[Rfam]
RNA sequence: UGCUGUGAUGGUGUAAUUUGCGUCUGAAUCUGUGAACAGUGACAGUUGCCUGCUGUCGUUAAGCUGUCAUAGAGUACUGAUGUGUUAUAAAGUCUGAGCA
Numbered sequence: 001u002g003c004u005g006u007g008a009u010g011g012u013g014u015a016a017u018u019u020g021c022g023u024c025u026g027a028a029u030c031u032g033u034g035a036a037c038a039g040u041g042a043c044a045g046u047u048g049c050c051u052g053c054u055g056u057c058g059u060u061a062a063g064c065u066g067u068c069a070u071a072g073a074g075u076a077c078u079g080a081u082g083u084g085u086u087a088u089a090a091a092g093u094c095u096g097a098g099c100a
Stems, first nucleotide, its partner, number of pairs: 001100003021082004030072005039064002041057005
This 100-nucleotide RNA sequence from Austrofundulus limnaeus belongs to the Rfam family "Small nucleolar RNA SNORD16". The family is grouped with related families in Rfam's "SNORD16 clan". The literature on the family includes a 1993 paper in EMBO J by Fragapane et al., "A novel small nucleolar RNA (U16) is encoded inside a ribosomal protein intron and originates by processing of the pre-mRNA". Rfam 15.1 lists 1,321 matches to the family in 655 species. NCBI's taxonomy places the organism under Eukaryota, Opisthokonta, Eumetazoa, Clupeocephala, Austrofundulus.